[Rfam]
RNA sequence: UCCCGAAGUUUCCUUCGGCAGUUAACUGCAGCCGGUUCUUAAUUUCGGUAGUUAACUGUCACGGUGGCAU
Numbered sequence: 001u002c003c004c005g006a007a008g009u010u011u012c013c014u015u016c017g018g019c020a021g022u023u024a025a026c027u028g029c030a031g032c033c034g035g036u037u038c039u040u041a042a043u044u045u046c047g048g049u050a051g052u053u054a055a056c057u058g059u060c061a062c063g064g065u066g067g068c069a070u
Stems, first nucleotide, its partner, number of pairs: 012066001015063001017060013
Rfam assigns this 70-nucleotide sequence from Medicago truncatula to the family "MIR2629 microRNA precursor family". It scores 60 bits against the family's covariance model. Lineage of the source: Eukaryota > Streptophyta > Spermatophyta > eudicotyledons > Medicago. Gene Ontology terms of the family: RISC complex and miRNA-mediated post-transcriptional gene silencing.